Annotation
The family of this 53-nucleotide sequence is "Glutamine riboswitch aptamer (glnA leader)". The family's consensus secondary structure is taken from published work. Its family is annotated with glutamine binding in the Gene Ontology. The sequence is in the family's curated seed alignment.
[Rfam]
RNA sequence: UACGUUCAUCCUCACUAGGACGGAAGUAGGCGAAAACGCUGAAGGAACGCACC
Numbered sequence: 001u002a003c004g005u006u007c008a009u010c011c012u013c014a015c016u017a018g019g020a021c022g023g024a025a026g027u028a029g030g031c032g033a034a035a036a037c038g039c040u041g042a043a044g045g046a047a048c049g050c051a052c053c
Base pairs, nucleotide, nucleotide: 003049004048005047006046007045009020010019011018012017023050029040030039031038